[Rfam]
RNA sequence: ACACUUCUUCGGGGCAGGGUGAAAUUCCCGACCGGCGGUAAAGUCCGCGAACCUUUUUGGUUGAUCCGGUGUAAUUCCGGAACCGACAGUAAAGUCUGGAUGAUAGAAGAAGAAU
Numbered sequence: 001a002c003a004c005u006u007c008u009u010c011g012g013g014g015c016a017g018g019g020u021g022a023a024a025u026u027c028c029c030g031a032c033c034g035g036c037g038g039u040a041a042a043g044u045c046c047g048c049g050a051a052c053c054u055u056u057u058u059g060g061u062u063g064a065u066c067c068g069g070u071g072u073a074a075u076u077c078c079g080g081a082a083c084c085g086a087c088a089g090u091a092a093a094g095u096c097u098g099g100a101u102g103a104u105a106g107a108a109g110a111a112g113a114a115u
Base pairs, nucleotide, nucleotide: 004112005111006110007109008108009107010106017029018028019027031095032094033085034084035048036047037046038045043083044082051061052060053059065081066080067079068078069077087098088097089096
About this RNA: The family of this 115-nucleotide sequence from Oceanotoga teriensis is "FMN riboswitch aptamer (RFN element)". The source organism's lineage runs through Bacteria, Thermotogota, Thermotogae, Petrotogales and Oceanotoga. The base pairs follow the family's consensus structure, which is taken from published work. From the family's description: The RFN element is a highly conserved domain that is found frequently in the 5'-untranslated regions of prokaryotic mRNAs that encode for flavin mononucleotide (FMN) biosynthesis and transport proteins. Gene Ontology term of the family: FMN binding.